[Rfam]
RNA sequence: AAUAAACCAUUGAAGAAGAGAUCAAACGAAAAGAUGUAUCUAAAGCGAGUUCGGAAUGGUGGAAGCCGAAUGAUGUCAGUUUCGCAAAUGGACUUCGGAGGGCAAAGUGAACUAGAGUAGCUAAGCCGUACUCAUGCGUUAAAUGAGAAGGGGAUAUCUUAUAAAGAUAUCAAUUCAGGUGGUACCGCAGAUUUUAUUUGUCCUGUAU
Numbered sequence: 001a002a003u004a005a006a007c008c009a010u011u012g013a014a015g016a017a018g019a020g021a022u023c024a025a026a027c028g029a030a031a032a033g034a035u036g037u038a039u040c041u042a043a044a045g046c047g048a049g050u051u052c053g054g055a056a057u058g059g060u061g062g063a064a065g066c067c068g069a070a071u072g073a074u075g076u077c078a079g080u081u082u083c084g085c086a087a088a089u090g091g092a093c094u095u096c097g098g099a100g101g102g103c104a105a106a107g108u109g110a111a112c113u114a115g116a117g118u119a120g121c122u123a124a125g126c127c128g129u130a131c132u133c134a135u136g137c138g139u140u141a142a143a144u145g146a147g148a149a150g151g152g153g154a155u156a157u158c159u160u161a162u163a164a165a166g167a168u169a170u171c172a173a174u175u176c177a178g179g180u181g182g183u184a185c186c187g188c189a190g191a192u193u194u195u196a197u198u199u200g201u202c203c204u205g206u207a208u
Stems, first nucleotide, its partner, number of pairs: 007101002015096004027084005038074003049071006102126002106122003127138003153171007176205004187201005
Dot-bracket structure: ......((......((((........(((((......(((........((((((...........))))))))).....)))))........))))...))((..(((...........)))..))(((......)))..............(((((((.....)))))))....((((.......(((((.....)))))))))...
The record is a 208-nucleotide sequence from Firmicutes bacterium CAG:536, which matches "T-box leader" in Rfam. It is annotated as a cis-regulatory leader. A search with the family's covariance model found it, with a score of 107 bits. The literature on the family includes a 1994 paper in J Bacteriol by Grundy et al., "Interaction between the acceptor end of tRNA and the T box stimulates antitermination in the Bacillus subtilis tyrS gene: a new role for the discriminator base". About the family: Uncharged tRNA acts as the effector for transcription antitermination of genes in the T-box leader family.